[Rfam]
RNA sequence: UAAUUCCACUAGGGGUGCUCGCCAGAGCUGAGAGAAAGGUGCGUCCUUUCAACCCUUGAACUUGAUCCGGUUAGGACCGGCGUAGGGAAGUGGUUAAACCAUGUG
Numbered sequence: 001u002a003a004u005u006c007c008a009c010u011a012g013g014g015g016u017g018c019u020c021g022c023c024a025g026a027g028c029u030g031a032g033a034g035a036a037a038g039g040u041g042c043g044u045c046c047u048u049u050c051a052a053c054c055c056u057u058g059a060a061c062u063u064g065a066u067c068c069g070g071u072u073a074g075g076a077c078c079g080g081c082g083u084a085g086g087g088a089a090g091u092g093g094u095u096a097a098a099c100c101a102u103g104u105g
Base pairs, nucleotide, nucleotide: 006093007092008091009090010089011056012055013054014053017028018027019026020025035049036048037047038046039045061086062085063084064083067080068079069078070077
Dot-bracket structure: .....(((((((((..((((....))))......(((((.....)))))...))))....((((..((((......))))..))))..)))))............

Overview: Rfam assigns this 105-nucleotide sequence from Thermoanaerobacterium sp. RBIITD to the family "TPP riboswitch aptamer (THI element)".